RNA sequence: CGAUGAGGUAGAGGUCGCGGUAUUAAAAAGUAAAAUGGAUGAGACGAAAAGCGUCGGGGAUUCUAUUUGAAAGGGAAUAUCGCCGAAGUGAUUAUAAGCUUUUUCUUAUAAUCAUUGGGGCUGUUGCCGAAAGGUGCAGAACUGUCACGUCUUAGCAGGCGUGUUGAGCUAUCUUUAUC
Numbered sequence: 001c002g003a004u005g006a007g008g009u010a011g012a013g014g015u016c017g018c019g020g021u022a023u024u025a026a027a028a029a030g031u032a033a034a035a036u037g038g039a040u041g042a043g044a045c046g047a048a049a050a051g052c053g054u055c056g057g058g059g060a061u062u063c064u065a066u067u068u069g070a071a072a073g074g075g076a077a078u079a080u081c082g083c084c085g086a087a088g089u090g091a092u093u094a095u096a097a098g099c100u101u102u103u104u105c106u107u108a109u110a111a112u113c114a115u116u117g118g119g120g121c122u123g124u125u126g127c128c129g130a131a132a133g134g135u136g137c138a139g140a141a142c143u144g145u146c147a148c149g150u151c152u153u154a155g156c157a158g159g160c161g162u163g164u165u166g167a168g169c170u171a172u173c174u175u176u177a178u179c
Base pairs, nucleotide, nucleotide: 006174007173008172009171010170011169017083018082019081020080021079022078023077024076033068034067035066036065037064038063039062087116088115089114090113091112092111093110094109095108096107097106098105117143118142121139122138123137124136127133146163147162148161149160150159151158
Dot-bracket structure: .....((((((.....((((((((........(((((((......................))))))).......))))))))...((((((((((((......))))))))))))((..((((..(.....)..))))..))..((((((......)))))).....)))))).....